[Rfam]
RNA sequence: AAUGGAAGAUUCCUAAGGGAUCGCACGAUCCAAUAAUUGAUCGAGAAUCAACUCCAACAUAUCAUUGAUAAGACAAGACAAACAUUGGAUCAAUGCGAUCCCUUUGGAACUCUCCAC
Numbered sequence: 001a002a003u004g005g006a007a008g009a010u011u012c013c014u015a016a017g018g019g020a021u022c023g024c025a026c027g028a029u030c031c032a033a034u035a036a037u038u039g040a041u042c043g044a045g046a047a048u049c050a051a052c053u054c055c056a057a058c059a060u061a062u063c064a065u066u067g068a069u070a071a072g073a074c075a076a077g078a079c080a081a082a083c084a085u086u087g088g089a090u091c092a093a094u095g096c097g098a099u100c101c102c103u104u105u106g107g108a109a110c111u112c113u114c115c116a117c
Stems, first nucleotide, its partner, number of pairs: 003116004008111001010109004015104007023096003027091005
Shown here is a 117-nucleotide RNA from Cucumis sativus, a member of the family "mir-393 microRNA precursor family". Lineage of the source: Eukaryota > Streptophytina > Gunneridae > Cucurbitaceae > Cucumis. It scores 66 bits against the family's covariance model. The literature on the family includes a 2012 paper in J Plant Physiol by Kruszka et al., "Role of microRNAs and other sRNAs of plants in their changing environments". Rfam 15.1 lists 1,052 matches to the family in 221 species.